Nucleotides: 137
Base pairs, nucleotide, nucleotide: 003056004055005054006053007052008051018043019042020041021040022039023038024037026035067131068130069129071127072126076124077123078122079121087115088114089113090112091111092110093109094108095107096106097105
Number, partner (000 for none) and nucleotide at each position: 001000c002000a003056a004055g005054c006053a007052g008051g009000c010000u011000g012000c013000u014000a015000u016000u017000a018043c019042a020041g021040u022039a023038c024037u025000g026035c027000u028000u029000u030000c031000u032000g033000u034000g035026g036000a037024a038023g039022u040021g041020c042019u043018g044000u045000c046000a047000u048000u049000a050000c051008c052007c053006u054005g055004c056003u057000g058000a059000g060000a061000g062000c063000a064000a065000c066000a067131u068130u069129c070000a071127a072126a073000c074000u075000u076124g077123g078122a079121g080000u081000c082000a083000g084000a085000a086000a087115g088114g089113g090112c091111u092110u093109g094108u095107c096106a097105g098000u099000u100000c101000u102000c103000u104000g105097u106096u107095g108094a109093c110092a111091a112090g113089c114088c115087c116000a117000g118000c119000u120000a121079c122078u123077c124076c125000u126072u127071u128000g129069g130068a131067a132000a133000c134000a135000u136000c137000u
The record is a 137-nucleotide RNA from Chanos chanos, which matches "Small nucleolar RNA SNORA69" in Rfam.
It is annotated as an H/ACA-box small nucleolar RNA.
Rfam describes the family as follows. U69 is a member of the H/ACA class of small nucleolar RNAs (snoRNAs) which act as guides in the the modification of uridines to pseudouridines.
It scores 62 bits against the family's covariance model.
Rfam links the family to the GO terms RNA processing and nucleolus.